[Rfam]
Retron msr RNA: a 66-nucleotide RNA.
It scores 78 bits against the family's covariance model.
Rfam classes the family as a non-coding RNA gene.
Retron elements are found in a wide range of mainly Gram-negative bacteria. The retron encodes a reverse transcriptase that is responsible for the production of a small satellite DNA called msDNA (multi-copy single-stranded DNA). msDNA has both DNA (encoded by the retron msd gene) and RNA (encoded by the msr gene) components. The 5' end of msDNA is linked to an internal guanosine residue of the RNA strand by a 2'-5' linkage. The components of msDNA are poorly conserved in sequence between different organisms -- this family therefore represents only a subset of known msr genes.
The family's consensus secondary structure was predicted with PFOLD.
The literature on the family includes a 2003 paper in FEMS Microbiol Lett by Ahmed and Shimamoto, "msDNA-St85, a multicopy single-stranded DNA isolated from Salmonella enterica serovar Typhimurium LT2 with the genomic analysis of its retron".
RNA sequence: ACUCUUUAGCGUUGGACGUUUUAUGUCUUGUCGGGUGAUUAGCCAGACACUAAUUUAUUGAGCACA
Numbered sequence: 001a002c003u004c005u006u007u008a009g010c011g012u013u014g015g016a017c018g019u020u021u022u023a024u025g026u027c028u029u030g031u032c033g034g035g036u037g038a039u040u041a042g043c044c045a046g047a048c049a050c051u052a053a054u055u056u057a058u059u060g061a062g063c064a065c066a
Stems, first nucleotide, its partner, number of pairs: 005062005029049004034044003